[Rfam]
RNA sequence: UCCAUCGCGAGGUGGAAUCUGAAAGAAGCUGUAAGCAAACCUCUGACCUGACGGACAGGAACCGCAUAAAAGGCUCGGAAAUACGGAUAAGGUGGCAAAAGACACUGAAGUCCAAAAGUUGCUGGAAGUACGAGUAAAUGCGGCAGGUACAUGGAGGGAAAGAGUACGCA
Numbered sequence: 001u002c003c004a005u006c007g008c009g010a011g012g013u014g015g016a017a018u019c020u021g022a023a024a025g026a027a028g029c030u031g032u033a034a035g036c037a038a039a040c041c042u043c044u045g046a047c048c049u050g051a052c053g054g055a056c057a058g059g060a061a062c063c064g065c066a067u068a069a070a071a072g073g074c075u076c077g078g079a080a081a082u083a084c085g086g087a088u089a090a091g092g093u094g095g096c097a098a099a100a101g102a103c104a105c106u107g108a109a110g111u112c113c114a115a116a117a118g119u120u121g122c123u124g125g126a127a128g129u130a131c132g133a134g135u136a137a138a139u140g141c142g143g144c145a146g147g148u149a150c151a152u153g154g155a156g157g158g159a160a161a162g163a164g165u166a167c168g169c170a
Stems, first nucleotide, its partner, number of pairs: 001016006030168003036162001040157006046148005062143006073135003077131001082130003085113004091106004